RNA sequence: GAUAGCCGUAGAUAACGAGGGGGUCGAGGGUGGGACUGGAGACUGUGCGAACGUCGCCGAGGGUGGCAUCGUACAAUCCGCCCCAGUACAUGGCUUUACCCACCAGCAUCAACGCACCCGCGCCCAAAAACAGCAAGUGAUGCCCCAAAAUCAGACCCAAUUGCUUGGGACUUUCCCA
Number, nucleotide and partner (000 for none) at each position: 001g000002a000003u000004a000005g000006c000007c000008g000009u000010a000011g000012a000013u000014a000015a000016c000017g000018a000019g000020g000021g000022g000023g000024u000025c000026g000027a000028g000029g000030g000031u000032g000033g000034g000035a000036c000037u000038g000039g000040a000041g000042a000043c000044u000045g000046u000047g000048c000049g000050a000051a000052c000053g000054u000055c000056g000057c000058c000059g000060a000061g000062g000063g000064u000065g000066g000067c000068a000069u000070c000071g000072u000073a000074c000075a000076a000077u000078c000079c000080g000081c000082c000083c000084c000085a000086g000087u000088a000089c000090a000091u000092g000093g000094c000095u000096u000097u000098a000099c000100c000101c000102a000103c000104c000105a000106g000107c000108a000109u000110c000111a000112a000113c000114g000115c000116a000117c000118c000119c000120g000121c000122g000123c000124c000125c000126a000127a000128a000129a000130a000131c000132a000133g000134c000135a000136a000137g174138u000139g172140a000141u170142g000143c000144c169145c168146c167147a166148a165149a000150a000151u000152c000153a000154g000155a000156c000157c000158c000159a000160a000161u000162u000163g000164c000165u148166u147167g146168g145169g144170a141171c000172u139173u000174u137175c000176c000177c000178a000

The record is a 178-nucleotide RNA from Oscillatoriales cyanobacterium M59_W2019_021, which matches "Antisense RNA which regulates isiA expression" in Rfam. On this family, see Duhring et al., Proc Natl Acad Sci U S A 2006: "An internal antisense RNA regulates expression of the photosynthesis gene isiA". The organism belongs to Oscillatoriales, within Bacteria. Pairs were carried over by alignment from the consensus structure, which was predicted with PFOLD.